[Rfam]
RNA sequence: UCGGUACCGGUUCACGUCCAUCAACUCAGGGCGACCCGGGACC
Numbered sequence: 001u002c003g004g005u006a007c008c009g010g011u012u013c014a015c016g017u018c019c020a021u022c023a024a025c026u027c028a029g030g031g032c033g034a035c036c037c038g039g040g041a042c043c
Stems, first nucleotide, its partner, number of pairs: 003043003007039004015033005
Dot-bracket structure: ..(((.((((....(((((.........)))))..)))).)))
The record is a 43-nucleotide RNA sequence from Nocardia uniformis, which matches "L31-Actinobacteria ribosomal protein leader" in Rfam.
Rfam classes the family as a cis-regulatory leader.
Taxonomically the source falls in Nocardia (Bacteria, Actinomycetota, Actinomycetes, Mycobacteriales).
The family is grouped with related families in Rfam's "Ribosomal Protein L31 Leader clan".